Source information: Plant signal recognition particle RNA: a 304-nucleotide RNA from Trifolium subterraneum. For this family Rfam cites "SRPDB: Signal Recognition Particle Database" (Rosenblad et al., Nucleic Acids Res, 2003). The base pairs follow the family's consensus structure, which is taken from published work. The family's RNA type in Rfam is non-coding RNA gene.
RNA sequence: GCCGAGCUGAGUAGCACCAGCUUGUUACCCAAGUGGGGGCAUCAAGGUGAUGGGACAUAGCUUUGGCUUAACAGGUUGGGUUGGUGUCUGCACUAUGCUGGCCUGCCCGCUCCAAGUUGAGAGUUGAGUCAUGAGACUUGAGCGAAAGCACGGGUCCUGUGGGUCUUAGACAGGAGGGUACAGCGUGAGGCUGGUUUCACAGAGCAGCGAAGACCUCCUUCUCCUGACAGUGGAGGGAUCACGGGCCGCUGCACCACCAACCCAUAACGGCCUGAUGAGCCUAGCCACUUGAACCAUCAUUUUU
Numbered sequence: 001g002c003c004g005a006g007c008u009g010a011g012u013a014g015c016a017c018c019a020g021c022u023u024g025u026u027a028c029c030c031a032a033g034u035g036g037g038g039g040c041a042u043c044a045a046g047g048u049g050a051u052g053g054g055a056c057a058u059a060g061c062u063u064u065g066g067c068u069u070a071a072c073a074g075g076u077u078g079g080g081u082u083g084g085u086g087u088c089u090g091c092a093c094u095a096u097g098c099u100g101g102c103c104u105g106c107c108c109g110c111u112c113c114a115a116g117u118u119g120a121g122a123g124u125u126g127a128g129u130c131a132u133g134a135g136a137c138u139u140g141a142g143c144g145a146a147a148g149c150a151c152g153g154g155u156c157c158u159g160u161g162g163g164u165c166u167u168a169g170a171c172a173g174g175a176g177g178g179u180a181c182a183g184c185g186u187g188a189g190g191c192u193g194g195u196u197u198c199a200c201a202g203a204g205c206a207g208c209g210a211a212g213a214c215c216u217c218c219u220u221c222u223c224c225u226g227a228c229a230g231u232g233g234a235g236g237g238a239u240c241a242c243g244g245g246c247c248g249c250u251g252c253a254c255c256a257c258c259a260a261c262c263c264a265u266a267a268c269g270g271c272c273u274g275a276u277g278a279g280c281c282u283a284g285c286c287a288c289u290u291g292a293a294c295c296a297u298c299a300u301u302u303u304u
Base pairs, nucleotide, nucleotide: 001040002039003038004023005022006021007020008019009018028037029036030035044303045302046301047300048299049298050297051296052295053294056291057290060286061284062283065280068278069277070276072274073273074272075271076270077269078263079262080261081260082259083258084257085256086255089253090252099248100247101246102245103244104243105242107237108236110235111234112233113232114231116228117227118226119225121223122222123221126165127164129162130161131160132159133158135156136155137154138153139152140151142149143148172219173218174217175216176215177214184209185208186207191202192201193200